[Rfam]
RNA: Fungal signal recognition particle RNA
Organism: Botrytis elliptica
RNA sequence: CGACUGUAACGGUCAUAAGGUUAAGGCGAGCUCACGUUCCCUCUUCCUUCUCUCCAAAUUCUUCAAUCUAACGAUUGAAGGCCACCAACAGUGCCCAGUCCGAACACCACGGUGGCAAUCCACUCGUGCAGGAAACACACGAUGCUGCGGUUGUCUUAAGCAAUGAAGAUGAUUUCUUGAGGGAGGUUUCACUCUGCAGAGAGCUCUUCACCGUGGGGUGGCGGUGCAGGAUUACAUUCGUUGUGUGGUUUGGAGUGCGGAAGAGGUUUGAGUUUCAACUUUU
Numbered sequence: 001c002g003a004c005u006g007u008a009a010c011g012g013u014c015a016u017a018a019g020g021u022u023a024a025g026g027c028g029a030g031c032u033c034a035c036g037u038u039c040c041c042u043c044u045u046c047c048u049u050c051u052c053u054c055c056a057a058a059u060u061c062u063u064c065a066a067u068c069u070a071a072c073g074a075u076u077g078a079a080g081g082c083c084a085c086c087a088a089c090a091g092u093g094c095c096c097a098g099u100c101c102g103a104a105c106a107c108c109a110c111g112g113u114g115g116c117a118a119u120c121c122a123c124u125c126g127u128g129c130a131g132g133a134a135a136c137a138c139a140c141g142a143u144g145c146u147g148c149g150g151u152u153g154u155c156u157u158a159a160g161c162a163a164u165g166a167a168g169a170u171g172a173u174u175u176c177u178u179g180a181g182g183g184a185g186g187u188u189u190c191a192c193u194c195u196g197c198a199g200a201g202a203g204c205u206c207u208u209c210a211c212c213g214u215g216g217g218g219u220g221g222c223g224g225u226g227c228a229g230g231a232u233u234a235c236a237u238u239c240g241u242u243g244u245g246u247g248g249u250u251u252g253g254a255g256u257g258c259g260g261a262a263g264a265g266g267u268u269u270g271a272g273u274u275u276c277a278a279c280u281u282u283u
Base pairs, nucleotide, nucleotide: 002014003013004012018281019280020279021278022277024275025274031270034267037265038264039263042260043259050257052255053254054253055252056251057250058249059248060247062079063078064077065076066075067074068073084246085245086243087242088241089240091237092236093235095230096229098227099226100224101223102222104219105218107216108215109214110213111212112211114155116153117152118151119150120149121147122146124142125141126140127139128138131136156160164210165209166208167207168206169205174203175202176201177200178199183194184193185192